[Rfam]
Nucleotides: 159
Stems, first nucleotide, its partner, number of pairs: 011144004018031003032139006042071001072124003080099006102118004
Number, partner (000 for none) and nucleotide at each position: 001000c002000a003000u004000u005000c006000a007000a008000a009000a010000u011144c012143g013142c014141u015000u016000a017000a018031u019030c020029c021000u022000a023000a024000u025000u026000a027000u028000a029020g030019g031018a032139g033138c034137g035136g036135a037134g038000g039000a040000a041000c042071c043000a044000a045000u046000g047000u048000u049000u050000g051000a052000g053000u054000c055000g056000a057000u058000c059000u060000u061000u062000c063000u064000u065000c066000g067000a068000c069000u070000a071042g072124g073123g074122g075000u076000g077000a078000a079000u080099c081098a082097a083096a084095c085094g086000u087000a088000a089000u090000g091000u092000u093000u094085c095084g096083u097082u098081u099080g100000u101000a102118g103117g104116g105115c106000u107000a108000c109000u110000c111000u112000u113000u114000u115105g116104c117103c118102c119000g120000a121000a122074u123073c124072c125000g126000a127000c128000a129000g130000c131000u132000a133000a134037c135036u136035u137034c138033g139032u140000a141014a142013g143012c144011g145000u146000u147000a148000g149000a150000g151000a152000g153000g154000g155000a156000g157000u158000g159000a
This 159-nucleotide RNA from Metabacillus litoralis belongs to the Rfam family "c-di-AMP riboswitch aptamer (ydaO/yuaA leader)".
It scores 103 bits against the family's covariance model.
Its family is annotated with regulation of gene expression and cyclic-di-AMP binding in the Gene Ontology.
The source organism's lineage runs through Bacteria, Bacillota, Caryophanales, Bacillaceae and Metabacillus.